[Rfam]
RNA sequence: UGGUUUUGCGAUGACUAGAAAAAAUUCCUCGUACUGAAUGCCAUUGCCAUGGCAUGAUAGACUCUUUUACACCCAUAGAAUAUGAGCAAC
Numbered sequence: 001u002g003g004u005u006u007u008g009c010g011a012u013g014a015c016u017a018g019a020a021a022a023a024a025u026u027c028c029u030c031g032u033a034c035u036g037a038a039u040g041c042c043a044u045u046g047c048c049a050u051g052g053c054a055u056g057a058u059a060g061a062c063u064c065u066u067u068u069a070c071a072c073c074c075a076u077a078g079a080a081u082a083u084g085a086g087c088a089a090c
Stems, first nucleotide, its partner, number of pairs: 003090002007088002